[Rfam]
RNA sequence: GGGCCGGGCGGGUGGCGUUGCGGGCCCUGGGCGCCCAGGGAGCUUGGCGGAGGUGACCGUGCCCCCCCCCCGGCCGCGUUGUGACGGCUCGUCGGCUCUGAGUUCUUGGCCGAGGUCCCCGCAGCUGGCGUCGGGCUCCAGGUAACGGCCAU
Numbered sequence: 001g002g003g004c005c006g007g008g009c010g011g012g013u014g015g016c017g018u019u020g021c022g023g024g025c026c027c028u029g030g031g032c033g034c035c036c037a038g039g040g041a042g043c044u045u046g047g048c049g050g051a052g053g054u055g056a057c058c059g060u061g062c063c064c065c066c067c068c069c070c071c072g073g074c075c076g077c078g079u080u081g082u083g084a085c086g087g088c089u090c091g092u093c094g095g096c097u098c099u100g101a102g103u104u105c106u107u108g109g110c111c112g113a114g115g116u117c118c119c120c121g122c123a124g125c126u127g128g129c130g131u132c133g134g135g136c137u138c139c140a141g142g143u144a145a146c147g148g149c150c151a152u
Stems, first nucleotide, its partner, number of pairs: 013017001034095002037092001039090001041089003045084001048081003052077001054076002057073002108137004115132001117130001119128003
The family of this 152-nucleotide RNA sequence from Carlito syrichta is "Human acetyl-coA cholesterol acyltransferase mRNA". The base pairs follow the family's consensus structure, which is taken from published work. On this family, see Chen et al., Cell Res 2008: "RNA secondary structures located in the interchromosomal region of human ACAT1 chimeric mRNA are required to produce the 56-kDa isoform". The family's RNA type in Rfam is cis-regulatory element. Lineage of the source: Eukaryota > Bilateria > Euteleostomi > Eutheria > Carlito.